[Rfam]
RNA: GA-cis RNA
RNA sequence: AAGAGAGGAGCGCUUAUGAGCGAAGCGAAUAACUCAAAUGCGCUCCGACGACCUGCCCCGCUCGUGGAGGCGAGAGGGGCGAUACAUUGU
Numbered sequence: 001a002a003g004a005g006a007g008g009a010g011c012g013c014u015u016a017u018g019a020g021c022g023a024a025g026c027g028a029a030u031a032a033c034u035c036a037a038a039u040g041c042g043c044u045c046c047g048a049c050g051a052c053c054u055g056c057c058c059c060g061c062u063c064g065u066g067g068a069g070g071c072g073a074g075a076g077g078g079g080c081g082a083u084a085c086a087u088u089g090u
Base pairs, nucleotide, nucleotide: 007046008045009044010043011042012041015031016030017029020026055080056079057078058077059076062073063072064071065070